[Rfam]
RNA: Eukaryotic large subunit ribosomal RNA, nucleotides 2257 to 2832
Organism: Cloeon dipterum
Nucleotides: 576
Base pairs, nucleotide, nucleotide: 001542002541003540004539010536011535012534013533014532015531016530018528019527020526035059036058037057038056039055044049060300061299063297064296065295066294067293068292069289070288071287072286073285075278076277077276078275080274081273082272083271084270085210086209089206090205098197099196100195101194107192109190110189111188112187113186115184116183117182118181121179122178124176125175126174127173128172129171132168133167134166135165136164137163138162139161140160301305313521314520315519316518317517318516319515320513321512324338325337326336341376342375343374344373345372346371347370348369352363353362354361355360380507381506382505384438385437386436389435390434391431392430393429394428396427399426400425401424407418408417409416410415439457440456441455442454443453444452458462478494479493480492481491482490555572556571557570558569559568
Number, partner (000 for none) and nucleotide at each position: 001542u002541a003540g004539a005000a006000u007000a008000a009000u010536g011535u012534a013533g014532g015531u016530a017000a018528g019527g020526g021000a022000a023000g024000u025000c026000g027000g028000c029000a030000a031000a032000u033000c034000g035059g036058a037057u038056c039055c040000g041000u042000a043000a044049c045000u046000u047000c048000g049044g050000g051000a052000c053000a054000a055039g056038g057037g058036u059035u060300g061299g062000c063297u064296c065295u066294g067293a068292g069289g070288g071287u072286c073285g074000g075278g076277g077276c078275g079000u080274g081273u082272c083271g084270g085210g086209c087000u088000u089206g090205g091000u092000u093000g094000g095000g096000a097000a098197g099196u100195g101194g102000g103000u104000a105000g106000a107192c108000a109190g110189c111188u112187a113186a114000c115184g116183u117182g118181c119000c120000g121179g122178g123000c124176c125175u126174g127173g128172g129171c130000g131000a132168g133167g134166u135165g136164g137163g138162u139161c140160g141000c142000g143000c144000u145000c146000c147000c148000u149000u150000c151000a152000c153000g154000g155000g156000g157000g158000g159000c160140c161139g162138g163137c164136c165135u166134g167133c168132c169000g170000a171129g172128u173127u174126c175125g176124g177000u178122c179121c180000c181118g182117u183116g184115c185000c186113u187112u188111g189110g190109c191000c192107g193000c194101c195100c196099a197098c198000g199000g200000a201000g202000c203000u204000c205090c206089c207000u208000u209086g210085c211000u212000g213000c214000g215000a216000g217000c218000c219000g220000g221000u222000c223000g224000g225000g226000g227000g228000c229000c230000g231000c232000g233000c234000c235000c236000u237000u238000c239000g240000c241000g242000g243000g244000g245000c246000g247000c248000g249000u250000c251000a252000c253000c254000u255000g256000c257000c258000u259000u260000c261000c262000g263000u264000g265000c266000c267000u268000c269000u270084u271083c272082g273081g274080c275078c276077g277076c278075c279000a280000u281000u282000c283000a284000a285073c286072g287071a288070c289069c290000a291000g292068c293067u294066c295065a296064g297063a298000a299061c300060u301305g302000g303000c304000a305301c306000g307000g308000a309000c310000c311000g312000g313521g314520g315519g316518a317517a318516u319515c320513c321512g322000a323000c324338u325337g326336u327000c328000u329000a330000a331000u332000u333000a334000a335000a336326a337325c338324a339000a340000a341376g342375c343374a344373u345372u346371g347370c348369g349000a350000u351000g352363g353362c354361c355360c356000a357000a358000g359000c360355g361354g362353g363352u364000g365000u366000u367000g368000a369348c370347g371346c372345a373344a374343u375342g376341u377000g378000a379000u380507u381506u382505c383000u384438g385437c386436c387000c388000a389435g390434u391431g392430c393429c394428u395000u396427g397000a398000a399426u400425g401424u402000c403000a404000a405000c406000g407418u408417g409416a410415a411000g412000a413000a414000a415410u416409u417408c418407a419000a420000g421000a422000a423000a424401g425400c426399g427396c428394a429393g430392g431391u432000a433000a434390a435389c436386g437385g438384c439457g440456g441455g442454a443453g444452u445000a446000a447000c448000u449000a450000u451000g452444a453443c454442u455441c456440u457439c458462u459000u460000a461000a462458g463000g464000u465000a466000g467000c468000c469000a470000a471000a472000u473000g474000c475000c476000u477000c478494g479493u480492c481491a482490u483000c484000u485000a486000a487000u488000u489000a490482g491481u492480g493479a494478c495000g496000c497000g498000c499000a500000u501000g502000a503000a504000u505382g506381g507380a508000u509000u510000a511000a512321c513320g514000a515319g516318a517317u518316u519315c520314c521313c522000a523000c524000u525000g526020u527019c528018c529000c530016u531015a532014u533013c534012u535011a536010c537000u538000a539004u540003c541002u542001a543000g544000c545000g546000a547000a548000a549000c550000c551000a552000c553000u554000g555572c556571c557570a558569a559568g560000g561000g562000a563000a564000c565000g566000g567000g568559c569558u570557u571556g572555g573000g574000a575000a576000a